RNA sequence: ACCACCCGCGCGGGAGAGACCGUUUACACGGCGCCGAAGGGGCAAAUCCUCCCCGGAACCUCUCAGGCAAAAGGACCGCGAGGGCAGG
Numbered sequence: 001a002c003c004a005c006c007c008g009c010g011c012g013g014g015a016g017a018g019a020c021c022g023u024u025u026a027c028a029c030g031g032c033g034c035c036g037a038a039g040g041g042g043c044a045a046a047u048c049c050u051c052c053c054c055g056g057a058a059c060c061u062c063u064c065a066g067g068c069a070a071a072a073g074g075a076c077c078g079c080g081a082g083g084g085c086a087g088g
Stems, first nucleotide, its partner, number of pairs: 006083002009080005020031004033068003036064002040062003047055001
RNA: Glycine riboswitch aptamer